[Rfam]
Small nucleolar RNA SNORD25: an 85-nucleotide sequence from Abrus precatorius. Taxonomically the source falls in Abrus (Eukaryota, Streptophyta, Streptophytina, Fabaceae). Pairs were carried over by alignment from the consensus structure, which was predicted with PFOLD. Rfam 15.1 lists 985 matches to the family in 241 species.
RNA sequence: CGUAACUGUGAUGAGCCCUACAGACCUGUAAUGAUUUGCGGGUAUGAUCGCAAUCGUUAAUGAACAUCUAAGGGACUGAGUUAUG
Numbered sequence: 001c002g003u004a005a006c007u008g009u010g011a012u013g014a015g016c017c018c019u020a021c022a023g024a025c026c027u028g029u030a031a032u033g034a035u036u037u038g039c040g041g042g043u044a045u046g047a048u049c050g051c052a053a054u055c056g057u058u059a060a061u062g063a064a065c066a067u068c069u070a071a072g073g074g075a076c077u078g079a080g081u082u083a084u085g
Base pairs, nucleotide, nucleotide: 002084003083004082005081006080